[Rfam]
About this RNA: The record is a 104-nucleotide RNA from Artemisia annua, which matches "MIR480 microRNA precursor family" in Rfam. Taxonomically the source falls in Artemisia (Eukaryota, Embryophyta, Tracheophyta, Spermatophyta). Rfam 15.1 lists 3,070 matches to the family in 171 species. On this family, see Lu et al., Plant Cell 2005: "Novel and mechanical stress-responsive MicroRNAs in Populus trichocarpa that are absent from Arabidopsis".
RNA sequence: UAAGAUUUGUAUGCAAAAAUCACUUGUGAUAAUGGAAAAAUCACAAGUGAUAAUGCAAAAUCACAAGUGAUUUUGCAUUAUCACUUUUGAUAAUGCAAAAUCAC
Dot-bracket structure: ...((((((..(.....((.......((((((((.........................................))))))))..)).....)..)).))))..